[Rfam]
RNA sequence: CAAGCUCUCAGGUUCUAGCGAACGCCCCUCGGAAAGGCUAGAACUCUUACGGGGCCGCUCUUGGGCGGCCUCUUUUUUC
Number, nucleotide and partner (000 for none) at each position: 001c000002a000003a000004g000005c000006u000007c000008u000009c000010a000011g045012g044013u043014u042015c041016u040017a039018g038019c037020g000021a000022a000023c000024g000025c000026c032027c031028c000029u000030c000031g027032g026033a000034a000035a000036g000037g019038c018039u017040a016041g015042a014043a013044c012045u011046c000047u000048u000049a000050c000051g072052g071053g070054g069055c068056c067057g066058c065059u064060c000061u000062u000063g000064g059065g058066c057067g056068g055069c054070c053071u052072c051073u000074u000075u000076u000077u000078u000079c000